RNA sequence: UCUUUCAGUAUUGAAACAAUCUCUACUGAGCCAAGCUCCAAACAUAGUUCACUGGAGUUUGUUUCAGUAUUGCAAGAA
Number, nucleotide and partner (000 for none) at each position: 001u000002c000003u076004u075005u074006c072007a071008g070009u069010a068011u067012u066013g065014a064015a063016a062017c061018a060019a059020u000021c057022u056023c055024u054025a053026c000027u051028g050029a049030g048031c047032c000033a000034a000035g000036c000037u000038c000039c000040a000041a000042a000043c000044a000045u000046a000047g031048u030049u029050c028051a027052c000053u025054g024055g023056a022057g021058u000059u019060u018061g017062u016063u015064u014065c013066a012067g011068u010069a009070u008071u007072g006073c000074a005075a004076g003077a000078a000
This 78-nucleotide RNA from Neotoma lepida belongs to the Rfam family "mir-653 microRNA precursor family". NCBI's taxonomy places the organism under Eukaryota, Eumetazoa, Teleostomi, Eutheria, Neotoma. The family has 10 seed sequences and 116 matches in Rfam 15.1.